This 51-nucleotide RNA sequence belongs to the Rfam family "Glutamine riboswitch aptamer (glnA leader)". Rfam links the family to the GO term glutamine binding. The base pairs follow the family's consensus structure, which is taken from published work. A reference for the family is Ames and Breaker (2011), "Bacterial aptamers that selectively bind glutamine", RNA Biol.
[Rfam]
RNA sequence: UACGUUCAUCCUACAAAAGGACGGAAGUAGCACUAUGCGAAGGAACGCACU
Numbered sequence: 001u002a003c004g005u006u007c008a009u010c011c012u013a014c015a016a017a018a019g020g021a022c023g024g025a026a027g028u029a030g031c032a033c034u035a036u037g038c039g040a041a042g043g044a045a046c047g048c049a050c051u
Stems, first nucleotide, its partner, number of pairs: 003047005009021004024048001030038003